[Rfam]
RNA sequence: AGAUGGCGGCCGCGGUAAAGCCUAGCAAGCAGCCGCGUACCGAGUCUUGCGUGGCGCCCGGUAACGGGCGUUGCGAAGCGUAGACAGGGAGGUUGUAGGCCGGAAUGAAAGUGAACGGAAAGAUAGCCCCGAAAUCGAACGUGAUCGGAGUAGCCGACCCUAUCUCUCUAAGGGGAAGGCGGAAUCGCGGGCCGCGCCAGCGCGAGUGGUCCGAGGUGCUCCCGGGGUUCGUACC
Number, nucleotide and partner (000 for none) at each position: 001a000002g000003a000004u000005g000006g000007c000008g000009g000010c000011c000012g036013c035014g034015g033016u032017a000018a000019a000020g030021c029022c000023u205024a000025g203026c202027a000028a000029g021030c020031a000032g016033c015034c014035g013036c012037g000038u090039a000040c088041c087042g000043a000044g085045u084046c083047u082048u080049g079050c075051g074052u073053g072054g071055c070056g069057c068058c067059c066060g065061g000062u000063a000064a000065c060066g059067g058068g057069c056070g055071u054072u053073g052074c051075g050076a000077a000078g000079c049080g048081u000082a047083g046084a045085c044086a000087g041088g040089g000090a038091g000092g000093u000094u000095g000096u000097a000098g000099g000100c000101c000102g000103g000104a000105a000106u000107g000108a000109a000110a000111g000112u000113g000114a000115a000116c000117g000118g000119a000120a000121a000122g000123a000124u000125a000126g228127c227128c226129c225130c224131g223132a000133a000134a000135u000136c000137g000138a000139a000140c000141g000142u000143g000144a000145u000146c000147g222148g221149a220150g219151u218152a217153g180154c179155c178156g000157a000158c174159c173160c172161u171162a000163u000164c000165u000166c000167u000168c000169u000170a000171a161172g160173g159174g158175g000176a000177a000178g155179g154180c153181g000182g000183a000184a000185u216186c215187g000188c213189g212190g211191g210192c209193c208194g207195c206196g000197c000198c000199a000200g000201c000202g026203c025204g000205a023206g195207u194208g193209g192210u191211c190212c189213g188214a000215g186216g185217u152218g151219c150220u149221c148222c147223c131224g130225g129226g128227g127228u126229u000230c000231g000232u000233a000234c000235c000
Shown here is a 235-nucleotide sequence from Microvirga sp. VF16, a member of the family "Group II catalytic intron D1-D4-6".
Lineage of the source: Bacteria > Pseudomonadati > Pseudomonadota > Alphaproteobacteria > Microvirga.
Rfam links the family to the GO term Group II intron splicing.
The pairing is the family consensus, mapped onto this sequence.
From the family's description: Group II introns are found in rRNA, tRNA and mRNA of organelles in fungi, plants and protists, and also in mRNA in bacteria.